[Rfam]
RNA sequence: CGGGUGAUGGCCGCCGGCAGCCACUUCGUGGCAGGUGAACCUGUCCUGCCCGCGUGUCAGCUCUGGGGAACAGCCCUGGGGAUCAUCCCUUCAUUGCUGGAGGACAACCCCUUGGUUGCCACCUGAUACGCGCUGCCCUGCUCGCGUCAGAGCAGUGACGAUGACGCACCCG
Numbered sequence: 001c002g003g004g005u006g007a008u009g010g011c012c013g014c015c016g017g018c019a020g021c022c023a024c025u026u027c028g029u030g031g032c033a034g035g036u037g038a039a040c041c042u043g044u045c046c047u048g049c050c051c052g053c054g055u056g057u058c059a060g061c062u063c064u065g066g067g068g069a070a071c072a073g074c075c076c077u078g079g080g081g082a083u084c085a086u087c088c089c090u091u092c093a094u095u096g097c098u099g100g101a102g103g104a105c106a107a108c109c110c111c112u113u114g115g116u117u118g119c120c121a122c123c124u125g126a127u128a129c130g131c132g133c134u135g136c137c138c139u140g141c142u143c144g145c146g147u148c149a150g151a152g153c154a155g156u157g158a159c160g161a162u163g164a165c166g167c168a169c170c171c172g
Stems, first nucleotide, its partner, number of pairs: 016137006052131009064121003071118005
About this RNA:
The family of this 172-nucleotide RNA from Streptomyces albireticuli is "gntR-DTE RNA". By type it is a small RNA.